Shown here is a 57-nucleotide RNA from Ruminiclostridium cellobioparum, a member of the family "Na+ riboswitch aptamer (DUF1646)". NCBI's taxonomy places the organism under Bacteria, Bacillota, Ruminiclostridium, Ruminiclostridium cellobioparum, Ruminiclostridium cellobioparum subsp. termitidis. A search with the family's covariance model found it, with a score of 56 bits. On this family, see White et al., Nat Chem Biol 2022: "Na(+) riboswitches regulate genes for diverse physiological processes in bacteria".

[Rfam]
RNA sequence: GGUUGGGCAAAAUAUUUUUGCUUUCAAGAUGACUAAAGGCUUCUGGGGUGGGAAGUC
Numbered sequence: 001g002g003u004u005g006g007g008c009a010a011a012a013u014a015u016u017u018u019u020g021c022u023u024u025c026a027a028g029a030u031g032a033c034u035a036a037a038g039g040c041u042u043c044u045g046g047g048g049u050g051g052g053a054a055g056u057c
Stems, first nucleotide, its partner, number of pairs: 003027003006022006038057007